Overview: Shown here is a 75-nucleotide RNA from Ursus americanus, a member of the family "Small nucleolar RNA SNORD113/SNORD114 family". Rfam classes the family as a C/D-box small nucleolar RNA. Gene Ontology terms of the family: RNA processing and nucleolus. The literature on the family includes a 2002 paper in Hum Mol Genet by Cavaille et al., "Identification of tandemly-repeated C/D snoRNA genes at the imprinted human 14q32 domain reminiscent of those at the Prader-Willi/Angelman syndrome region". The family is grouped with related families in Rfam's "SNORD74 clan". Rfam's curators write: The imprinted human domain at 14q32 contains two clusters of tandemly repeated small nucleolar RNAs named 14q(I) and 14q(II) snoRNAs. These two clusters are named SNORD113 and SNORD114 respectively in the HGNC approved gene symbol nomenclature. The snoRNAs found in both clusters are clearly related and are represented here by a single family. These snoRNAs are intron encoded and are processed from the tissue-specific non-coding human MEG8 RNA, which lies downstream of the imprinted genes DLK1 and GTL2. snoRNAs 14q(I) and 14q(II) differ from previously identified C/D box snoRNAs in their expression profiles and lack of complementarity to rRNA and snRNA. Homologues of these snoRNAs are found in the imprinted non-coding mouse transcript Rian, and in the rat non-coding Bsr (brain-specific repetitive) RNA.

[Rfam]
RNA sequence: UGGACCAGUGAUGAUGAUUGGUGGUCCAUAAGUCAUGGAUGAUAAGUAAUAUGAGUGUGGGACUCUGAGGGCCAA
Numbered sequence: 001u002g003g004a005c006c007a008g009u010g011a012u013g014a015u016g017a018u019u020g021g022u023g024g025u026c027c028a029u030a031a032g033u034c035a036u037g038g039a040u041g042a043u044a045a046g047u048a049a050u051a052u053g054a055g056u057g058u059g060g061g062a063c064u065c066u067g068a069g070g071g072c073c074a075a
Base pairs, nucleotide, nucleotide: 002073003072005070006069